[Rfam]
RNA: mir-340 microRNA precursor family
RNA sequence: UUGUAUCUGGUGUGAUUAUAAAGCAAUGAGACUGAUUGUCAUAUGUCGUUUGUGGGAUCCGUCUCAGUUACUUUAUAGCCAUACCUGGUAUCUUA
Numbered sequence: 001u002u003g004u005a006u007c008u009g010g011u012g013u014g015a016u017u018a019u020a021a022a023g024c025a026a027u028g029a030g031a032c033u034g035a036u037u038g039u040c041a042u043a044u045g046u047c048g049u050u051u052g053u054g055g056g057a058u059c060c061g062u063c064u065c066a067g068u069u070a071c072u073u074u075a076u077a078g079c080c081a082u083a084c085c086u087g088g089u090a091u092c093u094u095a
Base pairs, nucleotide, nucleotide: 006088007087009085011083012082013081014080016078017077018076019075020074021073022072023071027066028065029064030063031062032061034059035058036057037056039055040054041053042052043051